[Rfam]
RNA sequence: UCGAAGUUUCUCUACAAAUGGAUAAGAUUUUUGUCUUAGUUUAUACGAAUCGUGUGAAACAAGUACAUACCCCAUGUCUGCUUUAGCAAGACAUGGGGUAUUGCUAACUU
Numbered sequence: 001u002c003g004a005a006g007u008u009u010c011u012c013u014a015c016a017a018a019u020g021g022a023u024a025a026g027a028u029u030u031u032u033g034u035c036u037u038a039g040u041u042u043a044u045a046c047g048a049a050u051c052g053u054g055u056g057a058a059a060c061a062a063g064u065a066c067a068u069a070c071c072c073c074a075u076g077u078c079u080g081c082u083u084u085a086g087c088a089a090g091a092c093a094u095g096g097g098g099u100a101u102u103g104c105u106a107a108c109u110u
Stems, first nucleotide, its partner, number of pairs: 008022003011018001061110004065102001067101004072096003076092004